[Rfam]
This 101-nucleotide RNA sequence from Rhynchospora breviuscula belongs to the Rfam family "Small nucleolar RNA Z103". The base pairs follow the family's consensus structure, which was predicted with PFOLD. It scores 84 bits against the family's covariance model. Taxonomically the source falls in Rhynchospora (Eukaryota, Embryophyta, Liliopsida, Rhynchosporeae). The family's RNA type in Rfam is C/D-box small nucleolar RNA. Its family is annotated with nucleolus and RNA processing in the Gene Ontology.

RNA sequence: UUGGAUAUGAGGAUUCUUUUUCCCCACAUGAUCGACUCUGAUAUCAAGGAGCGCUUUAUUUAAUUUCUCUUUGGAGAAAUCAAGCCAGAAGUCUGAUCCAA
Dot-bracket structure: (((((...........................................................................................)))))